[Rfam]
RNA: mir-194 microRNA precursor family
RNA sequence: CAGUGUUGUCAACUGUAACAGCAACUCCAUGUGGAUUAAGCAUAUUUCCAGUGGAGCUGCUGUUGCUUUUGAAAGCAAC
Numbered sequence: 001c002a003g004u005g006u007u008g009u010c011a012a013c014u015g016u017a018a019c020a021g022c023a024a025c026u027c028c029a030u031g032u033g034g035a036u037u038a039a040g041c042a043u044a045u046u047u048c049c050a051g052u053g054g055a056g057c058u059g060c061u062g063u064u065g066c067u068u069u070u071g072a073a074a075g076c077a078a079c
Stems, first nucleotide, its partner, number of pairs: 009072003015066008025056006032050003